[Rfam]
RNA sequence: GAGGGUAUAGCUCAAGUGGUAGAGCGCAUACUUAGCAUGCACAAGGUCCUGGGUUCAAUCCCCAGUACCUUCA
Numbered sequence: 001g002a003g004g005g006u007a008u009a010g011c012u013c014a015a016g017u018g019g020u021a022g023a024g025c026g027c028a029u030a031c032u033u034a035g036c037a038u039g040c041a042c043a044a045g046g047u048c049c050u051g052g053g054u055u056c057a058a059u060c061c062c063c064a065g066u067a068c069c070u071u072c073a
Stems, first nucleotide, its partner, number of pairs: 001072007010025004029041001031039001049065005